[Rfam]
RNA sequence: GCCGAAAUAGCUCAGCUGGAGAGCGCUAGACUGAAGAUAGAGGUCCUUGGUUCAAUCCCGAGUUUCGGCA
Number, nucleotide and partner (000 for none) at each position: 001g069002c068003c067004g066005a065006a064007a063008u000009a000010g024011c023012u022013c021014a000015g000016c000017u000018g000019g000020a000021g013022a012023g011024c010025g000026c040027u039028a038029g000030a000031c000032u000033g000034a000035a000036g000037a000038u028039a027040g026041a000042g000043g000044u000045c000046c062047u061048u060049g059050g058051u000052u000053c000054a000055a000056u000057c000058c050059c049060g048061a047062g046063u007064u006065u005066c004067g003068g002069c001070a000